[Rfam]
RNA sequence: AGCACAGAUGAUGAACAACAAAGGGACUUAAUGCUGAAAUCUGAUGUUACAUUGUGACAUGCUGAUGGGUGC
Numbered sequence: 001a002g003c004a005c006a007g008a009u010g011a012u013g014a015a016c017a018a019c020a021a022a023g024g025g026a027c028u029u030a031a032u033g034c035u036g037a038a039a040u041c042u043g044a045u046g047u048u049a050c051a052u053u054g055u056g057a058c059a060u061g062c063u064g065a066u067g068g069g070u071g072c
Stems, first nucleotide, its partner, number of pairs: 002072004006066001
The family of this 72-nucleotide RNA from Trichechus manatus is "Small nucleolar RNA SNORD82". The base pairs follow the family's consensus structure, which was predicted with PFOLD. Rfam classes the family as a C/D-box small nucleolar RNA. About the family: snoRNA U82 or Z25 is found in both humans and mice. The literature on the family includes a 2002 paper in Mol Cell Biol by Galardi et al., "Purified box C/D snoRNPs are able to reproduce site-specific 2'-O-methylation of target RNA in vitro". Rfam 15.1 lists 649 matches to the family in 590 species. The source organism's lineage runs through Eukaryota, Gnathostomata, Dipnotetrapodomorpha, Theria and Trichechus manatus.